[Rfam]
RNA sequence: UUGUUUGCGGGUGUAGCAUCAUCAAGAUUCACAUGCAAAUACUCUCUCUCUAUCUAAUUUUCCAGGGAUAUUUGAGAGUGAGAAUCUUGAUGAUGCUGCAUCGGCAAUAAA
Numbered sequence: 001u002u003g004u005u006u007g008c009g010g011g012u013g014u015a016g017c018a019u020c021a022u023c024a025a026g027a028u029u030c031a032c033a034u035g036c037a038a039a040u041a042c043u044c045u046c047u048c049u050c051u052a053u054c055u056a057a058u059u060u061u062c063c064a065g066g067g068a069u070a071u072u073u074g075a076g077a078g079u080g081a082g083a084a085u086c087u088u089g090a091u092g093a094u095g096c097u098g099c100a101u102c103g104g105c106a107a108u109a110a111a
Stems, first nucleotide, its partner, number of pairs: 010102021032080002
Dot-bracket structure: .........(((((((((((((((((((((.((.............................................)).))))))))))))))))))))).........
This 111-nucleotide sequence from Actinidia chinensis belongs to the Rfam family "mir-172 microRNA precursor family". The match comes from Rfam's covariance-model search (95 bits). Taxonomically the source falls in Actinidia chinensis (Eukaryota, Viridiplantae, Streptophyta, Actinidiaceae). Rfam's curators write: mir-172 has been experimentally verified in Arabidopsis thaliana. This family is thought to target mRNAs coding for APETALA2-like transcription factors. The mature sequence is excised from the 3' arm of the hairpin.